This 105-nucleotide sequence from Arsenicitalea aurantiaca belongs to the Rfam family "EcpR1". On this family, see Wilms et al., RNA Biol 2012: "Deep sequencing uncovers numerous small RNAs on all four replicons of the plant pathogen Agrobacterium tumefaciens". The base pairs follow the family's consensus structure, which was predicted with WAR. From the family's description: Perviously named SmelC291, SmrC10, or Sra33. Taxonomically the source falls in Arsenicitalea (Bacteria, Alphaproteobacteria, Hyphomicrobiales, Devosiaceae).

[Rfam]
RNA sequence: AAACCCUACGGCCACCUCAGGUCCGCCGCAACUCCUGAGGCCGUAGGGGGCUGGUCCGGCCGCGCGAAGUGGCCUCUUCGACAUGCCGGCUGGACCAGCCACCCA
Number, nucleotide and partner (000 for none) at each position: 001a000002a000003a000004c048005c047006c046007u045008a044009c043010g042011g000012c000013c000014a000015c000016c039017u038018c037019a036020g035021g034022u000023c000024c000025g000026c000027c000028g000029c000030a000031a000032c000033u000034c021035c020036u019037g018038a017039g016040g000041c000042c010043g009044u008045a007046g006047g005048g004049g100050g099051c098052u097053g096054g095055u094056c093057c092058g091059g090060c000061c000062g000063c000064g000065c000066g000067a000068a000069g000070u000071g000072g000073c000074c000075u000076c000077u000078u000079c000080g000081a000082c000083a000084u000085g000086c000087c000088g000089g000090c059091u058092g057093g056094a055095c054096c053097a052098g051099c050100c049101a000102c000103c000104c000105a000